[Rfam]
RNA: Alphaproteobacterial sRNA ar9
Organism: Allorhizobium borbori
RNA sequence: ACAAAAAAGGCAGAGAGCUUAAAUUUUCUGCCAAACUUCGCGGUCAAGUCUUGGGAGGAUCAGAUCUUAGGCGCGUUCAUUCGCUGCCCCGGCGACGGAAAAGGAUCACGCGAUACUUGAAAACAAGGCCCUCUCGGCCUUGUUUUUUUUU
Numbered sequence: 001a002c003a004a005a006a007a008a009g010g011c012a013g014a015g016a017g018c019u020u021a022a023a024u025u026u027u028c029u030g031c032c033a034a035a036c037u038u039c040g041c042g043g044u045c046a047a048g049u050c051u052u053g054g055g056a057g058g059a060u061c062a063g064a065u066c067u068u069a070g071g072c073g074c075g076u077u078c079a080u081u082c083g084c085u086g087c088c089c090c091g092g093c094g095a096c097g098g099a100a101a102a103g104g105a106u107c108a109c110g111c112g113a114u115a116c117u118u119g120a121a122a123a124c125a126a127g128g129c130c131c132u133c134u135c136g137g138c139c140u141u142g143u144u145u146u147u148u149u150u151u
Base pairs, nucleotide, nucleotide: 003151004150005149006148011030012029013028014027015026016025039112040111041110042109048060049059050058051057063107064106065105066104067103070088071087072086073084074083075082089098090097091096122144123143124142125141126140127139128138129137